[Rfam]
RNA: Glycine riboswitch aptamer
Organism: Bradyrhizobiaceae bacterium
RNA sequence: CGACGUCACGUCGGGAGAGACUGGUCCCCUCAUUUUUUGAUUUGGAGGACCGGCGCCGAAGGAGCAACCGCCCCGGAAACUCUCAGGCAAACGGACCGCGUGACGGAC
Numbered sequence: 001c002g003a004c005g006u007c008a009c010g011u012c013g014g015g016a017g018a019g020a021c022u023g024g025u026c027c028c029c030u031c032a033u034u035u036u037u038u039g040a041u042u043u044g045g046a047g048g049a050c051c052g053g054c055g056c057c058g059a060a061g062g063a064g065c066a067a068c069c070g071c072c073c074c075g076g077a078a079a080c081u082c083u084c085a086g087g088c089a090a091a092c093g094g095a096c097c098g099c100g101u102g103a104c105g106g107a108c
Base pairs, nucleotide, nucleotide: 006103007102008101009100010099012098013097014096021053022052023051024050025049026048027047055088056087057086058084059083062082063081064080068076069075